[Rfam]
RNA sequence: UGUACAAAAGGAAAUGGUGUUCUUCCUUACCCAACCGCUUUUCAAAAAGCUGAUGACGCCUGAUUAAAA
Numbered sequence: 001u002g003u004a005c006a007a008a009a010g011g012a013a014a015u016g017g018u019g020u021u022c023u024u025c026c027u028u029a030c031c032c033a034a035c036c037g038c039u040u041u042u043c044a045a046a047a048a049g050c051u052g053a054u055g056a057c058g059c060c061u062g063a064u065u066a067a068a069a
Stems, first nucleotide, its partner, number of pairs: 010026004016060006037050004
RNA: Fluoride riboswitch aptamer (crcB RNA motif)
Organism: Chryseobacterium sp. RU37D